RNA sequence: CACCGCCCGUCGCUACUACCGAUUGAAUGAUUCAGUGAGGGCAUCGGACUGGCGCCUUCGGUAGCCGUCGGCUCGUAUCCCAAACUCCGCUUCGGCGGGGGCGGUCGCCGGCACCCUAGGCUGACGGAAAGAUGUCCGAACUUGAUUAUUUAGAGGAAGUAAAAGUCGUAACAAGGUUUCCGUAGGUGAACCUGCGGAAGGAUCAUUA
Number, nucleotide and partner (000 for none) at each position: 001c000002a000003c175004c000005g172006c000007c000008c168009g167010u000011c165012g000013c000014u161015a160016c159017u158018a000019c156020c155021g000022a000023u152024u000025g151026a150027a149028u148029g147030a146031u145032u144033c000034a142035g141036u140037g000038a000039g137040g136041g135042c134043a133044u132045c131046g000047g000048a000049c127050u126051g125052g000053c123054g122055c000056c120057u119058u118059c000060g115061g114062u113063a000064g000065c000066c000067g000068u000069c000070g000071g000072c000073u000074c000075g000076u000077a000078u000079c000080c000081c000082a000083a000084a000085c000086u000087c000088c000089g000090c000091u000092u000093c000094g000095g000096c000097g000098g000099g000100g000101g000102c000103g000104g000105u000106c000107g000108c000109c000110g000111g000112c000113a062114c061115c060116c000117u000118a058119g057120g056121c000122u054123g053124a000125c051126g050127g049128a000129a000130a000131g045132a044133u043134g042135u041136c040137c039138g000139a000140a036141c035142u034143u000144g032145a031146u030147u029148a028149u027150u026151u025152a023153g000154a000155g020156g019157a000158a017159g016160u015161a014162a000163a000164a000165g011166u000167c009168g008169u000170a000171a000172c005173a000174a000175g003176g000177u200178u199179u198180c197181c196182g195183u194184a193185g192186g191187u000188g000189a000190a000191c186192c185193u184194g183195c182196g181197g180198a179199a178200g177201g000202a000203u000204c000205a000206u000207u000208a000
The record is a 208-nucleotide part of an RNA from Armadillidium nasatum, which matches "Eukaryotic small subunit ribosomal RNA" in Rfam. Clan: SSU clan.